[Rfam]
RNA sequence: AGAUCAGUGAUGACUAUAGUUAUCUCAGGAUUCUGAAAGAUUGUUUUCAGAUUUCAACUAGUCU
Numbered sequence: 001a002g003a004u005c006a007g008u009g010a011u012g013a014c015u016a017u018a019g020u021u022a023u024c025u026c027a028g029g030a031u032u033c034u035g036a037a038a039g040a041u042u043g044u045u046u047u048c049a050g051a052u053u054u055c056a057a058c059u060a061g062u063c064u
Stems, first nucleotide, its partner, number of pairs: 001064004
RNA: Small nucleolar RNA SNORD109A